This 109-nucleotide RNA sequence from Pseudoflavonifractor sp. An176 belongs to the Rfam family "drum RNA". The family's RNA type in Rfam is small RNA. Pairs were carried over by alignment from the consensus structure, which is taken from published work. NCBI's taxonomy places the organism under Bacteria, Bacillati, Eubacteriales, Oscillospiraceae, Pseudoflavonifractor.
RNA sequence: CAACGGUGAAGCACGGUGUCGGUCCAGUUUCGGUGCAGUGUGGAGUUUUAUGAGGGGUUGUGCAACAACCACAGACUGGAUAGCCGAAAGGCGAAAGAAAAUGCUAAAA
Dot-bracket structure: .(((......((((.((((((..[[[[...)))))).))))...)))..............(((...........]]]]...(((....))).........))).....